[Rfam]
RNA sequence: UCUGUGGACUGUUAUACAAACAAGAUUAGAUAGACAAUGAACUUCUACGAAGUUCAUUGUCGUUGAAAUUGGACAGGUUGAAGCAGAAA
Numbered sequence: 001u002c003u004g005u006g007g008a009c010u011g012u013u014a015u016a017c018a019a020a021c022a023a024g025a026u027u028a029g030a031u032a033g034a035c036a037a038u039g040a041a042c043u044u045c046u047a048c049g050a051a052g053u054u055c056a057u058u059g060u061c062g063u064u065g066a067a068a069u070u071g072g073a074c075a076g077g078u079u080g081a082a083g084c085a086g087a088a089a
Stems, first nucleotide, its partner, number of pairs: 001087005009076005021071003029064003033061012